Annotation:
The record is a 125-nucleotide RNA sequence from Veillonella montpellierensis, which matches "PyrR binding site" in Rfam. A reference for the family is Bonner et al. (2001), "Molecular recognition of pyr mRNA by the Bacillus subtilis attenuation regulatory protein PyrR", Nucleic Acids Res. Lineage of the source: Bacteria > Bacillati > Veillonellales > Veillonellaceae > Veillonella montpellierensis. It scores 63 bits against the family's covariance model. Its family is annotated with pyrimidine nucleobase transport and pyrimidine nucleobase biosynthetic process in the Gene Ontology. The family has 41 seed sequences and 1,498 matches in Rfam 15.1. Rfam's curators write: This family represents the PyrR binding site and terminator structure. This RNA structure is found upstream of a variety of genes involved in pyrimidine biosynthesis and transport. Pairs were carried over by alignment from the consensus structure, which is taken from published work.

RNA sequence: AGAACCUUUUAAGUUAGUCCUGCGAGGCUAAUAAAGGUAGAUAGUUGCAAGUCGUUCCGUGGUUACGGGUACUUUGUCAUGUUUACUAUACGACCUUUUGCCCCAGGCAAAGGGUCGUUUUUUUA
Number, nucleotide and partner (000 for none) at each position: 001a000002g000003a000004a038005c037006c036007u035008u034009u033010u000011a000012a000013g000014u031015u030016a029017g028018u027019c026020c000021u000022g000023c000024g000025a000026g019027g018028c017029u016030a015031a014032u000033a009034a008035a007036g006037g005038u004039a000040g000041a000042u000043a000044g000045u000046u079047g078048c000049a000050a075051g074052u000053c000054g000055u000056u069057c068058c067059g066060u000061g000062g000063u000064u000065a000066c059067g058068g057069g056070u000071a000072c000073u000074u051075u050076g000077u000078c047079a046080u000081g000082u000083u000084u000085a000086c000087u000088a120089u000090a118091c117092g116093a115094c114095c113096u112097u111098u110099u109100g108101c107102c000103c000104c000105a000106g000107g101108c100109a099110a098111a097112g096113g095114g094115u093116c092117g091118u090119u000120u088121u000122u000123u000124u000125a000